Source information: Molybdenum/Tungsten riboswitch aptamer (Moco RNA motif): a 136-nucleotide RNA sequence from Cronobacter sakazakii. The match comes from Rfam's covariance-model search (93 bits).
[Rfam]
RNA sequence: ACCUGAAAAUGACACUCAAGCCUUUGCGCCUACGUUUUUAAGAAAUAUGGUGCUCUGGCCGUGGCGAAACGCCACCAGGGUGCAGGAAGAAAUGACUGCAUCUCCCGAUUUGGAAAGGUGUACAUGGCUUCUCAAC
Numbered sequence: 001a002c003c004u005g006a007a008a009a010u011g012a013c014a015c016u017c018a019a020g021c022c023u024u025u026g027c028g029c030c031u032a033c034g035u036u037u038u039u040a041a042g043a044a045a046u047a048u049g050g051u052g053c054u055c056u057g058g059c060c061g062u063g064g065c066g067a068a069a070c071g072c073c074a075c076c077a078g079g080g081u082g083c084a085g086g087a088a089g090a091a092a093u094g095a096c097u098g099c100a101u102c103u104c105c106c107g108a109u110u111u112g113g114a115a116a117g118g119u120g121u122a123c124a125u126g127g128c129u130u131c132u133c134a135a136c
Stems, first nucleotide, its partner, number of pairs: 012121004017117001020059003026053005034046004061075005078103008088093001104113002